This 135-nucleotide RNA from Onychostoma macrolepis belongs to the Rfam family "Small nucleolar RNA SNORA47". It scores 55 bits against the family's covariance model. The literature on the family includes a 2001 paper in EMBO J by Huttenhofer et al., "RNomics: an experimental approach that identifies 201 candidates for novel, small, non-messenger RNAs in mouse". Rfam links the family to the GO terms RNA processing and nucleolus. Rfam 15.1 lists 733 matches to the family in 635 species. The base pairs follow the family's consensus structure, which was predicted with WAR. The organism belongs to Onychostoma, within Eukaryota. Rfam classes the family as an H/ACA-box small nucleolar RNA.
[Rfam]
RNA sequence: AGGAGGAUUGAGAAAGUUAAGCAGCUGCUUUUGUUCUGCAUUAACUGGUUAUAACCUCCUAGAAAAAAAACACAAGUGCUAAAGUGCUGUUAAUUGUCUGUAUGAAGUAGUCAUUGCAAUACUUGUGUACAUUUA
Numbered sequence: 001a002g003g004a005g006g007a008u009u010g011a012g013a014a015a016g017u018u019a020a021g022c023a024g025c026u027g028c029u030u031u032u033g034u035u036c037u038g039c040a041u042u043a044a045c046u047g048g049u050u051a052u053a054a055c056c057u058c059c060u061a062g063a064a065a066a067a068a069a070a071c072a073c074a075a076g077u078g079c080u081a082a083a084g085u086g087c088u089g090u091u092a093a094u095u096g097u098c099u100g101u102a103u104g105a106a107g108u109a110g111u112c113a114u115u116g117c118a119a120u121a122c123u124u125g126u127g128u129a130c131a132u133u134u135a
Base pairs, nucleotide, nucleotide: 002059003058004057005056006055015046016045017044018043019041021039022038023037024036077127078126079125083123084122086120088118095113096112098110